RNA sequence: GCCUCGGUGGCUCAGCCUGGUAGAGCGCCUGACUUGUAAUCAGGUGGUCGGGGGUUCGAAUCCCCCCCGAGGCU
Numbered sequence: 001g002c003c004u005c006g007g008u009g010g011c012u013c014a015g016c017c018u019g020g021u022a023g024a025g026c027g028c029c030u031g032a033c034u035u036g037u038a039a040u041c042a043g044g045u046g047g048u049c050g051g052g053g054g055u056u057c058g059a060a061u062c063c064c065c066c067c068c069g070a071g072g073c074u
Stems, first nucleotide, its partner, number of pairs: 001073007010026004028044005050066005